Shown here is a 58-nucleotide RNA from Anisodus acutangulus, a member of the family "Plastid-ndhJ 3UTR RNA". Rfam describes the family as follows. Plastid ndhJ is a non-coding RNA (ncRNA) present in plastids. It was identified as a short stem-loop motif in the 3 prime untranslate region (3UTR) of ndhJ gene. It is annotated as a cis-regulatory element. The literature on the family includes a 2023 paper in Plant Commun by Richter et al., "Retrograde signaling in plants: A critical review focusing on the GUN pathway and beyond". The source organism's lineage runs through Eukaryota, Streptophytina, asterids, Solanoideae and Anisodus. The family's consensus secondary structure was predicted with LocARNA.
[Rfam]
RNA sequence: UCAUGAACUUUGUACUGUCUUACGUUACUUAGACGGAUUCUAGAAAGGCAUAUGGGAA
Numbered sequence: 001u002c003a004u005g006a007a008c009u010u011u012g013u014a015c016u017g018u019c020u021u022a023c024g025u026u027a028c029u030u031a032g033a034c035g036g037a038u039u040c041u042a043g044a045a046a047g048g049c050a051u052a053u054g055g056g057a058a
Base pairs, nucleotide, nucleotide: 021037023035024034025033026032
Dot-bracket structure: ....................(.((((.....)))).).....................